A member of the RNA family "Glycine riboswitch aptamer" from Lysinibacillus sphaericus, 93 nucleotides long. Its family is annotated with glycine biosynthetic process in the Gene Ontology.
RNA sequence: AUGAUUGUACGGGGAGAGCGCGUGUAGACGCCACCGAAGGAGCAAGUAGCAAAGGGCUAUGAAUCUCUCAGGUAAAAGGACUCGUACAAGACG
Numbered sequence: 001a002u003g004a005u006u007g008u009a010c011g012g013g014g015a016g017a018g019c020g021c022g023u024g025u026a027g028a029c030g031c032c033a034c035c036g037a038a039g040g041a042g043c044a045a046g047u048a049g050c051a052a053a054g055g056g057c058u059a060u061g062a063a064u065c066u067c068u069c070a071g072g073u074a075a076a077a078g079g080a081c082u083c084g085u086a087c088a089a090g091a092c093g
Stems, first nucleotide, its partner, number of pairs: 006088008020031004033073003036069002040067003046060005

Taxonomically the source falls in Lysinibacillus (Bacteria, Bacillati, Bacillota, Bacilli).
A search with the family's covariance model found it, with a score of 69 bits.